This 85-nucleotide sequence belongs to the Rfam family "gyrA RNA". The match comes from Rfam's covariance-model search (46 bits). The family's RNA type in Rfam is cis-regulatory element.
RNA sequence: UCGUGAGUCGCCCCCGCUGUGGCGACAACGGCGGACUCCGGUCCGGCCCAGGAAGGGCGUGACGGGGUUUCACCUGAAUAAGGAA
Dot-bracket structure: ......(((((..((.....)).)....))))((((((((.(.(.((((.....))))).).))))))))...............
Numbered sequence: 001u002c003g004u005g006a007g008u009c010g011c012c013c014c015c016g017c018u019g020u021g022g023c024g025a026c027a028a029c030g031g032c033g034g035a036c037u038c039c040g041g042u043c044c045g046g047c048c049c050a051g052g053a054a055g056g057g058c059g060u061g062a063c064g065g066g067g068u069u070u071c072a073c074c075u076g077a078a079u080a081a082g083g084a085a
Stems, first nucleotide, its partner, number of pairs: 007032004011024001014022002033070008042061001044059001046058004